Annotation
c-di-GMP-I riboswitch aptamer: a 77-nucleotide RNA sequence from Baekduia soli. Pairs were carried over by alignment from the consensus structure, which is taken from published work. From the family's description: GEMM was predicted in a large-scale screen for bacterial structured RNA regulatory elements.
RNA sequence: CCCCGAUUCGGGCACGCUCGCCGCGAGGCGAGUUCGCAAAGCCACGGGACUCCGCCGGAGUUCGCCGGGCUACCGCA
Number, nucleotide and partner (000 for none) at each position: 001c000002c000003c000004c000005g000006a000007u000008u000009c000010g000011g000012g037013c036014a000015c000016g000017c032018u031019c030020g029021c028022c027023g000024c000025g000026a000027g022028g021029c020030g019031a018032g017033u000034u000035c000036g013037c012038a000039a000040a071041g070042c069043c068044a000045c067046g066047g065048g062049a061050c060051u059052c058053c057054g000055c000056c000057g053058g052059a051060g050061u049062u048063c000064g000065c047066c046067g045068g043069g042070c041071u040072a000073c000074c000075g000076c000077a000